Shown here is a 95-nucleotide sequence from Emericellopsis atlantica, a member of the family "tRNA".
The family's consensus secondary structure is taken from published work.
NCBI's taxonomy places the organism under Eukaryota, Fungi, Ascomycota, Sordariomycetes, Emericellopsis.
By type it is a transfer RNA.
Gene Ontology term of the family: triplet codon-amino acid adaptor activity.

[Rfam]
RNA sequence: GGGCGGUUGGUGUAGUGGCUAUCAUCCCCGCUUUGCAUGUCUUCGGACAUUCACUGUUCUGCGGGUGGUCGGGGGUUCAAAUCCCUCACCGUCCA
Numbered sequence: 001g002g003g004c005g006g007u008u009g010g011u012g013u014a015g016u017g018g019c020u021a022u023c024a025u026c027c028c029c030g031c032u033u034u035g036c037a038u039g040u041c042u043u044c045g046g047a048c049a050u051u052c053a054c055u056g057u058u059c060u061g062c063g064g065g066u067g068g069u070c071g072g073g074g075g076u077u078c079a080a081a082u083c084c085c086u087c088a089c090c091g092u093c094c095a
Stems, first nucleotide, its partner, number of pairs: 001094007010025003027065005071087005